[Rfam]
RNA sequence: ACAGUAGUUGCAAAUGAUGGAUAAAAAUUGUUUUCACUGACAAAAUGUGAUGUCUUAACAAUUUCGUCACUACCACUGAUGCAACUACAAU
Numbered sequence: 001a002c003a004g005u006a007g008u009u010g011c012a013a014a015u016g017a018u019g020g021a022u023a024a025a026a027a028u029u030g031u032u033u034u035c036a037c038u039g040a041c042a043a044a045a046u047g048u049g050a051u052g053u054c055u056u057a058a059c060a061a062u063u064u065c066g067u068c069a070c071u072a073c074c075a076c077u078g079a080u081g082c083a084a085c086u087a088c089a090a091u
Base pairs, nucleotide, nucleotide: 001091004088005087006086007085008084009083010082011081012080
Dot-bracket structure: (..(((((((((...................................................................)))))))))..)